A member of the RNA family "mir-557 microRNA precursor family" from Homo sapiens, 69 nucleotides long. On this family, see Brameier, BMC Res Notes 2010: "Genome-wide comparative analysis of microRNAs in three non-human primates".

[Rfam]
RNA sequence: AAUUUGGAGGCCUGGGGCCCUCCCUGCUGCUGGAGAAGUGUUUGCACGGGUGGGCCUUGUCUUUGAAAG
Numbered sequence: 001a002a003u004u005u006g007g008a009g010g011c012c013u014g015g016g017g018c019c020c021u022c023c024c025u026g027c028u029g030c031u032g033g034a035g036a037a038g039u040g041u042u043u044g045c046a047c048g049g050g051u052g053g054g055c056c057u058u059g060u061c062u063u064u065g066a067a068a069g
Stems, first nucleotide, its partner, number of pairs: 003067009014058007022050003025046003028040004

Lineage of the source: Eukaryota > Chordata > Vertebrata > Simiiformes > Homo.